[Rfam]
RNA: U2 spliceosomal RNA
RNA sequence: CAUUCUGCUGUUUAGUUCAAGCGCAGUAUCUGUUCUUAUCAGUUUAAUAUCUGAUAUGUUUUCUAUUUGAAAAUUACACUCAUAGAAUGUGUUCAUGCCAAACUUCCAUUGAAUUCAUUGGAAGUUCAGCAUGAGUGAAGACAGCAUUAUCUGGCCCUUGCUUCACACCU
Numbered sequence: 001c002a003u004u005c006u007g008c009u010g011u012u013u014a015g016u017u018c019a020a021g022c023g024c025a026g027u028a029u030c031u032g033u034u035c036u037u038a039u040c041a042g043u044u045u046a047a048u049a050u051c052u053g054a055u056a057u058g059u060u061u062u063c064u065a066u067u068u069g070a071a072a073a074u075u076a077c078a079c080u081c082a083u084a085g086a087a088u089g090u091g092u093u094c095a096u097g098c099c100a101a102a103c104u105u106c107c108a109u110u111g112a113a114u115u116c117a118u119u120g121g122a123a124g125u126u127c128a129g130c131a132u133g134a135g136u137g138a139a140g141a142c143a144g145c146a147u148u149a150u151c152u153g154g155c156c157c158u159u160g161c162u163u164c165a166c167a168c169c170u
Stems, first nucleotide, its partner, number of pairs: 001010002037056006058074006097130002101126004110121001112119002133163006140155001142153003